[Rfam]
RNA sequence: AUAACAAGUGCUAUUUCAAUAGCCAUAUAUUUGCUUUCCGAGUAGUGCCCAUUUUAUGGGCACUUUUUUUAUUUA
Numbered sequence: 001a002u003a004a005c006a007a008g009u010g011c012u013a014u015u016u017c018a019a020u021a022g023c024c025a026u027a028u029a030u031u032u033g034c035u036u037u038c039c040g041a042g043u044a045g046u047g048c049c050c051a052u053u054u055u056a057u058g059g060g061c062a063c064u065u066u067u068u069u070u071a072u073u074u075a
Base pairs, nucleotide, nucleotide: 001070003068004067006065007064008063021035022034023033025031046062047061048060049059050058051057
RNA: Aggregatibacter sRNA 20
Organism: Chelonobacter oris